uup RNA: a 48-nucleotide RNA sequence.
Pairs were carried over by alignment from the consensus structure, which is taken from published work.
[Rfam]
RNA sequence: GGCGAAUCAACUCUGUACAAUUGAAAUGGAUGAGACAUUGUACAGAGG
Numbered sequence: 001g002g003c004g005a006a007u008c009a010a011c012u013c014u015g016u017a018c019a020a021u022u023g024a025a026a027u028g029g030a031u032g033a034g035a036c037a038u039u040g041u042a043c044a045g046a047g048g
Stems, first nucleotide, its partner, number of pairs: 011047005017041003
It is one of the family's seed sequences.